[Rfam]
RNA sequence: AGGUAUGGAUCUUUUGCUAACUUCGCAAACGUCCUGUUUGCAACGCAAAAGUCAACGCAUCCUGCGUA
Numbered sequence: 001a002g003g004u005a006u007g008g009a010u011c012u013u014u015u016g017c018u019a020a021c022u023u024c025g026c027a028a029a030c031g032u033c034c035u036g037u038u039u040g041c042a043a044c045g046c047a048a049a050a051g052u053c054a055a056c057g058c059a060u061c062c063u064g065c066g067u068a
Base pairs, nucleotide, nucleotide: 011051012050013049014048015047016046017045026040027039028038029037030036055067056066057065058064
A member of the RNA family "Bacillaceae-1 RNA" from Alteribacillus iranensis, 68 nucleotides long. The organism belongs to Alteribacillus, within Bacteria. Pairs were carried over by alignment from the consensus structure, which is taken from published work.